[Rfam]
RNA sequence: ACGUUUUUUUCAUAGAGAUUUAGAUUUAAGGUUAGAAGAAUUGUGGAAGUCGUGAGACUUCCCUUUUUUUUAUCCCUUAAUUCUUGUUCUCUCAGAAUUUACCGACAAAUCUUAUAUUGCCAAGAGGAUAUAAAAAAAGCUCUUUCAUGCGAAAGAGCUUUUUU
Numbered sequence: 001a002c003g004u005u006u007u008u009u010u011c012a013u014a015g016a017g018a019u020u021u022a023g024a025u026u027u028a029a030g031g032u033u034a035g036a037a038g039a040a041u042u043g044u045g046g047a048a049g050u051c052g053u054g055a056g057a058c059u060u061c062c063c064u065u066u067u068u069u070u071u072a073u074c075c076c077u078u079a080a081u082u083c084u085u086g087u088u089c090u091c092u093c094a095g096a097a098u099u100u101a102c103c104g105a106c107a108a109a110u111c112u113u114a115u116a117u118u119g120c121c122a123a124g125a126g127g128a129u130a131u132a133a134a135a136a137a138a139g140c141u142c143u144u145u146c147a148u149g150c151g152a153a154a155g156a157g158c159u160u161u162u163u164u
Base pairs, nucleotide, nucleotide: 026080027079028078029077030076031073032072035071036070037069038068039067040066045062046061047060048059049058050057051056082132087128088127089126090125091124092123134163135162136161137160138159139158140157141156142155143154144153145152146151
The record is a 164-nucleotide RNA sequence from Bacteroides stercoris, which matches "Bacteroides sRNA BTnc231" in Rfam. The family's consensus secondary structure is taken from published work. NCBI's taxonomy places the organism under Bacteria, Bacteroidota, Bacteroidia, Bacteroidales, Bacteroides. The match comes from Rfam's covariance-model search (114 bits).